[Rfam]
Source information:
The family of this 306-nucleotide sequence from Bremia lactucae is "Metazoan signal recognition particle RNA". The organism belongs to Bremia, within Eukaryota. Rfam describes the family as follows. The signal recognition particle (SRP) is a universally conserved ribonucleoprotein. Rfam links the family to the GO terms SRP-dependent cotranslational protein targeting to membrane, signal sequence recognition and signal recognition particle, endoplasmic reticulum targeting. A reference for the family is Rosenblad et al. (2003), "SRPDB: Signal Recognition Particle Database", Nucleic Acids Res.

RNA sequence: GCCGGGUUGGGUGACGCCAACUUGUAACGGAUAUGUUUCUGUCCGGGUAGUGAGGUGUGAGGAUUGGGGUGUGCAAUAAUGUGUCACUAUAGUCAGGGUGUAGAAGGCGCGUCCGUCUCAAACCAGGAGUAGACAUUGGGACAUUGUCGUAGGACAAUGCAUCAAGGUCUCUAAGGAAGGGUGGAUCGCCCCAGGCUGGAUAACAGAGCAGGGAAAAUUUCUCGCUUCUGGUAGUGAGGGGAUCUCGUGCUAGAAUUCUGACGUGACGCACAAUCGCUAAAAUACCGCAAUUCGAAAAUCUCACGU
Numbered sequence: 001g002c003c004g005g006g007u008u009g010g011g012u013g014a015c016g017c018c019a020a021c022u023u024g025u026a027a028c029g030g031a032u033a034u035g036u037u038u039c040u041g042u043c044c045g046g047g048u049a050g051u052g053a054g055g056u057g058u059g060a061g062g063a064u065u066g067g068g069g070u071g072u073g074c075a076a077u078a079a080u081g082u083g084u085c086a087c088u089a090u091a092g093u094c095a096g097g098g099u100g101u102a103g104a105a106g107g108c109g110c111g112u113c114c115g116u117c118u119c120a121a122a123c124c125a126g127g128a129g130u131a132g133a134c135a136u137u138g139g140g141a142c143a144u145u146g147u148c149g150u151a152g153g154a155c156a157a158u159g160c161a162u163c164a165a166g167g168u169c170u171c172u173a174a175g176g177a178a179g180g181g182u183g184g185a186u187c188g189c190c191c192c193a194g195g196c197u198g199g200a201u202a203a204c205a206g207a208g209c210a211g212g213g214a215a216a217a218u219u220u221c222u223c224g225c226u227u228c229u230g231g232u233a234g235u236g237a238g239g240g241g242a243u244c245u246c247g248u249g250c251u252a253g254a255a256u257u258c259u260g261a262c263g264u265g266a267c268g269c270a271c272a273a274u275c276g277c278u279a280a281a282a283u284a285c286c287g288c289a290a291u292u293c294g295a296a297a298a299u300c301u302c303a304c305g306u
Base pairs, nucleotide, nucleotide: 001048002047003046004023005022006021007020008019009018010017028045029044030043031042032041050304051303052302053301054300055299056298058296061293062292063291064290065289066288067285069283070282072280073278080270081269082268083267084266085265086264092262093261094260095259096258097257098256099255101253106251107250108249109248110247111246113241114240116239117238118237119236120235122232123231124230125229126228127227128226129225130224131170132169133168134167136165137164138163139162142159143158144157145156146155147154148153171175178222179221180220181219189213190212191211196206197205198204